[Rfam]
RNA sequence: AAUGUUGAUAGGAGCUAUAGCAAAAGUGUUCACAUUGCAACCCCUGUCAGGUACUACCUGCAAAUUCUACU
Dot-bracket structure: ..........[[.[.[..((.(.(((((.......)))].].]]...(((((...)))))....)).).))
RNA: Mammalian CPEB3 ribozyme
Organism: Crocodylus porosus